[Rfam]
RNA: Small nucleolar RNA SNORA51
Organism: Castor canadensis
Nucleotides: 131
Stems, first nucleotide, its partner, number of pairs: 002059007020043003026037002029034001073123005086110003090106003094102002
Number, partner (000 for none) and nucleotide at each position: 001000g002059g003058c004057c005056u006055c007054c008053u009000g010000g011000u012000g013000c014000u015000u016000a017000c018000c019000a020043u021042a022041g023000g024000u025000u026037g027036u028000c029034u030000u031000c032000u033000u034029a035000c036027a037026c038000u039000g040000a041022c042021u043020a044000u045000a046000u047000a048000g049000g050000a051000a052000g053008g054007g055006g056005a057004g058003g059002c060000a061000a062000a063000g064000u065000a066000a067000a068000a069000c070000u071000a072000c073123c074122c075121c076120a077119u078000a079000u080000g081000c082000a083000c084000c085000u086110c087109a088108g089000g090106c091105c092104a093000u094102g095101c096000c097000c098000u099000g100000u101095g102094c103000c104092u105091g106090g107000u108088c109087u110086g111000c112000a113000u114000u115000g116000u117000g118000a119077a120076u121075g122074g123073g124000a125000a126000a127000c128000a129000c130000a131000g